[Rfam]
A member of the RNA family "SAM riboswitch aptamer (S box leader)" from Rummeliibacillus stabekisii, 114 nucleotides long. NCBI's taxonomy places the organism under Bacteria, Bacillati, Bacillota, Caryophanaceae, Rummeliibacillus. The match comes from Rfam's covariance-model search (79 bits). Rfam describes the family as follows. The SAM riboswitch is found upstream of a number of genes which code for proteins involved in methionine or cysteine biosynthesis in Gram-positive bacteria. The SAM riboswitch acts at the level of transcription termination control. The predicted structure consists of a complex stem-loop region followed by a single stem loop terminator region.

RNA sequence: GAUCUAUCCAGAGAGGUGGAGGGACAUGGCCCUUUGAAACCUCAGCAACAGGUUCUACUAAUGUAGUAGAAUACUGUGCUAAUUCCAUCAGGCAUAUAGCUUGGAAGAUAGGAG
Numbered sequence: 001g002a003u004c005u006a007u008c009c010a011g012a013g014a015g016g017u018g019g020a021g022g023g024a025c026a027u028g029g030c031c032c033u034u035u036g037a038a039a040c041c042u043c044a045g046c047a048a049c050a051g052g053u054u055c056u057a058c059u060a061a062u063g064u065a066g067u068a069g070a071a072u073a074c075u076g077u078g079c080u081a082a083u084u085c086c087a088u089c090a091g092g093c094a095u096a097u098a099g100c101u102u103g104g105a106a107g108a109u110a111g112g113a114g
Stems, first nucleotide, its partner, number of pairs: 003112006013043005021032003026088004044080004049076002052072007084106001089103005